Rfam assigns this 74-nucleotide RNA sequence from Limosilactobacillus mucosae to the family "tRNA". By type it is a transfer RNA.
[Rfam]
RNA sequence: GGGGCAAUAGCUCAACUGGAUAGAGCAUUGGUCUUCUAAACCAAAGGUUGUGGGUUCGAUUCCCACUUGCCCCA
Numbered sequence: 001g002g003g004g005c006a007a008u009a010g011c012u013c014a015a016c017u018g019g020a021u022a023g024a025g026c027a028u029u030g031g032u033c034u035u036c037u038a039a040a041c042c043a044a045a046g047g048u049u050g051u052g053g054g055u056u057c058g059a060u061u062c063c064c065a066c067u068u069g070c071c072c073c074a
Stems, first nucleotide, its partner, number of pairs: 001073007010026004028044005050066005
Dot-bracket structure: (((((((..((((.........)))).(((((.......))))).....(((((.......)))))))))))).